[Rfam]
RNA sequence: CGCGUGGGCCGGGCCCCUCUGGCGAGAUCGCAUCGCGGUCUUGCGAUGUCGGACCGCAGCG
Numbered sequence: 001c002g003c004g005u006g007g008g009c010c011g012g013g014c015c016c017c018u019c020u021g022g023c024g025a026g027a028u029c030g031c032a033u034c035g036c037g038g039u040c041u042u043g044c045g046a047u048g049u050c051g052g053a054c055c056g057c058a059g060c061g
Stems, first nucleotide, its partner, number of pairs: 006055002009052004022044008